Source information
A member of the RNA family "MIR6288 microRNA precursor family" from Prunus persica, 88 nucleotides long. Gene Ontology terms of the family: RISC complex and miRNA-mediated post-transcriptional gene silencing. The organism belongs to Prunus, within Eukaryota.
[Rfam]
RNA sequence: AAAACUAGCCACUUGUUAUUUUUUAAUUGAUUCUUAUUGUGUUAAAAUUUUAUAAGAACCAAUUAGAAAAUAACAAGUGGCUAGUUUU
Numbered sequence: 001a002a003a004a005c006u007a008g009c010c011a012c013u014u015g016u017u018a019u020u021u022u023u024u025a026a027u028u029g030a031u032u033c034u035u036a037u038u039g040u041g042u043u044a045a046a047a048u049u050u051u052a053u054a055a056g057a058a059c060c061a062a063u064u065a066g067a068a069a070a071u072a073a074c075a076a077g078u079g080g081c082u083a084g085u086u087u088u
Stems, first nucleotide, its partner, number of pairs: 001088029031058007